[Rfam]
RNA sequence: GUAGGAUACGGGGACAUGGUUCCAAAGACUUAUGUUGGUAUGUUCGUGGGUGCUUUGUGCGCGCUUGCCGGUGUAUUGACGAUAGCCCUGCCGGUUCCCGUUAUAGUAUCCAAU
Numbered sequence: 001g002u003a004g005g006a007u008a009c010g011g012g013g014a015c016a017u018g019g020u021u022c023c024a025a026a027g028a029c030u031u032a033u034g035u036u037g038g039u040a041u042g043u044u045c046g047u048g049g050g051u052g053c054u055u056u057g058u059g060c061g062c063g064c065u066u067g068c069c070g071g072u073g074u075a076u077u078g079a080c081g082a083u084a085g086c087c088c089u090g091c092c093g094g095u096u097c098c099c100g101u102u103a104u105a106g107u108a109u110c111c112a113a114u
Stems, first nucleotide, its partner, number of pairs: 001114002004111002007108003011104001013102003018097002021094001037077004050062002